[Rfam]
RNA: Lysine riboswitch aptamer
Organism: Clostridium senegalense
RNA sequence: AUUGAUUGUAGAGGUCGCGAUAUUUAUAAGUACCAAUAAUGAGGUAAGCACAAUGAUUUAUUGGAAAAGGAGUUAUCGCCGAAGGAUAUAACUUAUGCUUUAAGGUUAUAUACCUGGGUAUGUAUAAAAUAUAUGCAUAACUGUCACAAGUUUAAAUUGUGUUGAGCUACAUUUGAG
Number, nucleotide and partner (000 for none) at each position: 001a000002u000003u000004g000005a000006u000007u171008g170009u169010a168011g167012a000013g000014g000015u000016c000017g079018c078019g077020a076021u075022a074023u000024u072025u071026a000027u000028a000029a000030g000031u000032a000033c064034c063035a062036a061037u060038a059039a058040u000041g000042a000043g000044g000045u000046a000047a000048g000049c000050a000051c000052a000053a000054u000055g000056a000057u000058u039059u038060a037061u036062u035063g034064g033065a000066a000067a000068a000069g000070g000071a025072g024073u000074u022075a021076u020077c019078g018079c017080c000081g000082a000083a115084g114085g113086a000087u110088a109089u108090a107091a106092c105093u104094u103095a000096u000097g000098c000099u000100u000101u000102a000103a094104g093105g092106u091107u090108a089109u088110a087111u000112a000113c085114c084115u083116g142117g141118g000119u139120a138121u137122g136123u135124a134125u133126a132127a000128a000129a000130u000131a000132u126133a125134u124135g123136c122137a121138u120139a119140a000141c117142u116143g000144u000145c161146a160147c159148a158149a157150g000151u000152u000153u000154a000155a000156a000157u149158u148159g147160u146161g145162u000163u000164g000165a000166g000167c011168u010169a009170c008171a007172u000173u000174u000175g000176a000177g000